[Rfam]
RNA sequence: GGUCUUUGACAUACUUGAUACAGGCGACAAUAAUAGAUAACUCACGUGGGUGCAAUGCCCACAUAGUGACUAACAACAUAGCUUGCAAGGUCAGACUUAGCGUGCUGACCGCUGAACGGCUCACGACCGAUACCCCGCCCCUCGCAAAGGGCUUGCAAGCAC
Numbered sequence: 001g002g003u004c005u006u007u008g009a010c011a012u013a014c015u016u017g018a019u020a021c022a023g024g025c026g027a028c029a030a031u032a033a034u035a036g037a038u039a040a041c042u043c044a045c046g047u048g049g050g051u052g053c054a055a056u057g058c059c060c061a062c063a064u065a066g067u068g069a070c071u072a073a074c075a076a077c078a079u080a081g082c083u084u085g086c087a088a089g090g091u092c093a094g095a096c097u098u099a100g101c102g103u104g105c106u107g108a109c110c111g112c113u114g115a116a117c118g119g120c121u122c123a124c125g126a127c128c129g130a131u132a133c134c135c136c137g138c139c140c141c142u143c144g145c146a147a148a149g150g151g152c153u154u155g156c157a158a159g160c161a162c
Stems, first nucleotide, its partner, number of pairs: 046062005081160008089110006117129003137152004
A member of the RNA family "DUF2693 RNA", 162 nucleotides long.
The base pairs follow the family's consensus structure, which is taken from published work.